[Rfam]
This 88-nucleotide RNA from Anolis carolinensis belongs to the Rfam family "mir-210 microRNA precursor family". Rfam's curators put it in the seed alignment. Rfam links the family to the GO terms RISC complex and miRNA-mediated post-transcriptional gene silencing. Taxonomically the source falls in Anolis (Eukaryota, Sarcopterygii, Episquamata, Anolidae). On this family, see Cai et al., Proc Natl Acad Sci U S A 2005: "Kaposi's sarcoma-associated herpesvirus expresses an array of viral microRNAs in latently infected cells".
RNA sequence: UCCAGGAGCAGAUGAGCCACUGACUAACGCACAUUGUGCUUCUCGUGUCCCCACUGUGCGUGUGACAGCGGCUAACCUGCUUUUCGGA
Numbered sequence: 001u002c003c004a005g006g007a008g009c010a011g012a013u014g015a016g017c018c019a020c021u022g023a024c025u026a027a028c029g030c031a032c033a034u035u036g037u038g039c040u041u042c043u044c045g046u047g048u049c050c051c052c053a054c055u056g057u058g059c060g061u062g063u064g065a066c067a068g069c070g071g072c073u074a075a076c077c078u079g080c081u082u083u084u085c086g087g088a
Base pairs, nucleotide, nucleotide: 005083006082007081008080009079010078011077015073016072017071018070020068021067022066024064025062026061028060029059030058031057032056033055035053036052